Fluoride riboswitch aptamer (crcB RNA motif): an 83-nucleotide sequence from Novacetimonas maltaceti. The match comes from Rfam's covariance-model search (40 bits). Taxonomically the source falls in Novacetimonas (Bacteria, Pseudomonadati, Pseudomonadota, Alphaproteobacteria).
RNA sequence: CUGUCGCCCGGCAAUGGACUCUGCCCGGUUUCCUGUCCGCAGGACGCCAAACCGCCCGUCGGGCUGAUGAUUCCUACCUCGCC
Numbered sequence: 001c002u003g004u005c006g007c008c009c010g011g012c013a014a015u016g017g018a019c020u021c022u023g024c025c026c027g028g029u030u031u032c033c034u035g036u037c038c039g040c041a042g043g044a045c046g047c048c049a050a051a052c053c054g055c056c057c058g059u060c061g062g063g064c065u066g067a068u069g070a071u072u073c074c075u076a077c078c079u080c081g082c083c
Stems, first nucleotide, its partner, number of pairs: 010025004016074003020070002054064003